Shown here is a 102-nucleotide RNA from [Clostridium] methylpentosum, a member of the family "THF (Tetrahydrofolate) riboswitch aptamer". Lineage of the source: Bacteria > Bacillati > Clostridia > Oscillospiraceae > [Clostridium] methylpentosum. From the family's description: Tetrahydrofolate (THF) riboswitch was first reported for Ames et al. as an RNA motif in 5' untranslated (5'-UTR)regions of folate transport and biosynthesis genes in Firmicutes genomes. Gene Ontology term of the family: tetrahydrofolate metabolic process. Pairs were carried over by alignment from the consensus structure, which is taken from published work.
RNA sequence: AGCAAAGUAGACAUUUGCGCGUUAAGUGUCCGAUGAACGGGGAGUUGUCAUCGGAACGAAGGGAAGUUUCUUCCUGCGGUGCAAAUGUUGCAUCCCGUUGCU
Numbered sequence: 001a002g003c004a005a006a007g008u009a010g011a012c013a014u015u016u017g018c019g020c021g022u023u024a025a026g027u028g029u030c031c032g033a034u035g036a037a038c039g040g041g042g043a044g045u046u047g048u049c050a051u052c053g054g055a056a057c058g059a060a061g062g063g064a065a066g067u068u069u070c071u072u073c074c075u076g077c078g079g080u081g082c083a084a085a086u087g088u089u090g091c092a093u094c095c096c097g098u099u100g101c102u
Stems, first nucleotide, its partner, number of pairs: 001102005010089010020078003026057002029055008040095003044091001061075004